[Rfam]
RNA sequence: UUUUUUCUUUAAGCGCCAUGUACCGGAGUGAUCCGGUUAACGAGGAGAAGGGUGAUCGAAGAUUCGGCGGAUGCCCUUUCGUACAGCCCGGUGCGUAUAUAUUGACAAAUAUGCAGGCAACUGCAAAACAAAAACAAUAUAACGGGAACUG
Numbered sequence: 001u002u003u004u005u006u007c008u009u010u011a012a013g014c015g016c017c018a019u020g021u022a023c024c025g026g027a028g029u030g031a032u033c034c035g036g037u038u039a040a041c042g043a044g045g046a047g048a049a050g051g052g053u054g055a056u057c058g059a060a061g062a063u064u065c066g067g068c069g070g071a072u073g074c075c076c077u078u079u080c081g082u083a084c085a086g087c088c089c090g091g092u093g094c095g096u097a098u099a100u101a102u103u104g105a106c107a108a109a110u111a112u113g114c115a116g117g118c119a120a121c122u123g124c125a126a127a128a129c130a131a132a133a134a135c136a137a138u139a140u141a142a143c144g145g146g147a148a149c150u151g
Base pairs, nucleotide, nucleotide: 022037023036024035025034026033027032047079048078049077050076051075056067057066058065059064080095081094082093083092084091098141099140100139101138102137103136104135112125113124114123115122116121

glmS glucosamine-6-phosphate activated ribozyme aptamer: a 151-nucleotide sequence from Pseudocoprococcus catus. This entry contains a glucosamine-6-phosphate activated ribozyme that is found in the mRNA for GlmS. GlmS is an enzyme that uses fructose-6-phosphate and glutamine to generate glucosamine-6-phosphate. The ribozyme catalyses self cleavage of the glmS mRNA that is thought to regulate GlmS activity. The family's RNA type in Rfam is riboswitch. The source organism's lineage runs through Bacteria, Bacillati, Lachnospirales, Lachnospiraceae and Pseudocoprococcus. Pairs were carried over by alignment from the consensus structure, which is taken from published work. On this family, see Hampel and Tinsley, Biochemistry 2006: "Evidence for preorganization of the glmS ribozyme ligand binding pocket".